[Rfam]
The record is a 53-nucleotide RNA sequence from Aquilegia coerulea, which matches "Plastid-atpF group II-D1 intron" in Rfam. A reference for the family is Richter et al. (2023), "Retrograde signaling in plants: A critical review focusing on the GUN pathway and beyond", Plant Commun. Plastid atpF is a non-coding RNA (ncRNA) recognised in plastids. It has been reported in the intron group II-D1 region of ATP synthase (atpF) genes. The organism belongs to Aquilegia, within Eukaryota.
RNA sequence: UGCAUUUUAUCCGAUAUAGAACACUCAUAUGGAUAAAAUGAUUUUAACCCUUU
Dot-bracket structure: ...........(.((((.........)))).).....................
Numbered sequence: 001u002g003c004a005u006u007u008u009a010u011c012c013g014a015u016a017u018a019g020a021a022c023a024c025u026c027a028u029a030u031g032g033a034u035a036a037a038a039u040g041a042u043u044u045u046a047a048c049c050c051u052u053u
Stems, first nucleotide, its partner, number of pairs: 012032001014030004